[Rfam]
RNA sequence: GGGUUACUCCUUUGCGCUUUCAGCGCUCAAUUUGAUAAAGAUUCGCACCUCUAUCAAACCGGGUAACCCCGCUUUUCGCAAGGCCCUACUGUCAGAUUAAAUCUGAACUACUACAUCUAAUCGCUGCUAUGAUUUUUGGAGGAUCGGCUGCUACAGCAGACGCCUCUUCCGUCAUUACCGGAGUUACAGCAA
Dot-bracket structure: (((((((.((...((((.....))))....(((((((.((........)).)))))))..))))))))).((.....((....(.((...(((((((...))))).)).(..(.(.................))..)..)))....))..................((((((....)).)))).....))..
Annotation
A member of the RNA family "Proteobacterial sRNA psRNA2" from Nitrosospira multiformis, 192 nucleotides long. The family's RNA type in Rfam is small RNA. It scores 129 bits against the family's covariance model. For this family Rfam cites "Computational prediction and transcriptional analysis of sRNAs in Nitrosomonas europaea" (Gvakharia et al., FEMS Microbiol Lett, 2010).